[Rfam]
Rfam assigns this 50-nucleotide sequence from Roseicyclus elongatus to the family "SAM/SAH riboswitch aptamer".

RNA sequence: UCAGCCUCGCAACGGCUUCCUGGCGCGGGGACCUUGUUUUCAAUGGAGCA
Numbered sequence: 001u002c003a004g005c006c007u008c009g010c011a012a013c014g015g016c017u018u019c020c021u022g023g024c025g026c027g028g029g030g031a032c033c034u035u036g037u038u039u040u041c042a043a044u045g046g047a048g049c050a
Base pairs, nucleotide, nucleotide: 004032006029007028008027009026010025013022014021015049016048017047019046020045

Lineage of the source: Bacteria > Rhodobacterales > Roseobacteraceae > Roseicyclus > Roseicyclus elongatus.
The literature on the family includes a 2019 paper in Nucleic Acids Res by Weickhmann et al., "The structure of the SAM/SAH-binding riboswitch".
Rfam links the family to the GO terms S-adenosylmethionine metabolic process and regulation of gene expression.